The family of this 68-nucleotide RNA from Nonomuraea cypriaca is "ASdes TB sRNA". A search with the family's covariance model found it, with a score of 83 bits. The family has 26 seed sequences and 1,192 matches in Rfam 15.1. Rfam classes the family as a small RNA. The base pairs follow the family's consensus structure, which is taken from published work.
[Rfam]
RNA sequence: AGCGCGACCGGGUCGACCGCGCGGGUGACCGUGAGGUAGUCGCGCAGCGCGGUGCCGUGGCGGUCUUC
Dot-bracket structure: ....((.(..(((..(((.....))).)))....((((.(((((...)))))))))..).))......
Numbered sequence: 001a002g003c004g005c006g007a008c009c010g011g012g013u014c015g016a017c018c019g020c021g022c023g024g025g026u027g028a029c030c031g032u033g034a035g036g037u038a039g040u041c042g043c044g045c046a047g048c049g050c051g052g053u054g055c056c057g058u059g060g061c062g063g064u065c066u067u068c
Stems, first nucleotide, its partner, number of pairs: 005062002008059001011030003016026003035056004040052005